[Rfam]
U7 small nuclear RNA: a 57-nucleotide sequence from Esox lucius.
It scores 57 bits against the family's covariance model.

RNA sequence: GGAAAUUAAUGCUCUUUUAGUAUUUGUCCAGCAGGUUUUCUCAAUGAGAAAGCCCCC
Number, nucleotide and partner (000 for none) at each position: 001g000002g000003a000004a000005a000006u000007u000008a000009a000010u000011g000012c000013u000014c000015u000016u000017u000018u000019a000020g000021u000022a000023u000024u000025u000026g000027u000028c000029c000030a000031g000032c000033a000034g054035g053036u052037u051038u050039u049040c048041u047042c046043a000044a000045u000046g042047a041048g040049a039050a038051a037052g036053c035054c034055c000056c000057c000